[Rfam]
Rfam assigns this 94-nucleotide RNA from Lonsdalea quercina to the family "sraA".
Pairs were carried over by alignment from the consensus structure, which was predicted with RNAalifold.
For this family Rfam cites "Novel small RNA-encoding genes in the intergenic regions of Escherichia coli" (Argaman et al., Curr Biol, 2001).
Taxonomically the source falls in Lonsdalea (Bacteria, Pseudomonadota, Enterobacterales, Pectobacteriaceae).
RNA sequence: AGAUAUUCGAGUAUAUGGGGAUAAAUAUCCUACAUUCAACGAUAGAUCGCGCUGAAAAAGGAAUGGGGGGCUAACACCCCCCAUUUUGUUCUUC
Dot-bracket structure: .........(((...(((((.......))))).))).........................(((((((((.(...)))))))))).........